[Rfam]
RNA sequence: GAAACCUCAUCUUGCUCGCCGCCAUCCGGGCGUCGAGCAGUGCUUUUUCUGCAAGAAAGCACAGGCAUCCCGCCUGGGUGAGGAGAAAGU
Numbered sequence: 001g002a003a004a005c006c007u008c009a010u011c012u013u014g015c016u017c018g019c020c021g022c023c024a025u026c027c028g029g030g031c032g033u034c035g036a037g038c039a040g041u042g043c044u045u046u047u048u049c050u051g052c053a054a055g056a057a058a059g060c061a062c063a064g065g066c067a068u069c070c071c072g073c074c075u076g077g078g079u080g081a082g083g084a085g086a087a088a089g090u
Stems, first nucleotide, its partner, number of pairs: 005083008015037003020032004040062009063075004
Dot-bracket structure: ....((((((((..(((..((((.....))))..)))..(((((((((.....)))))))))((((.....)))))))))))).......
RNA: RAGATH-10 RNA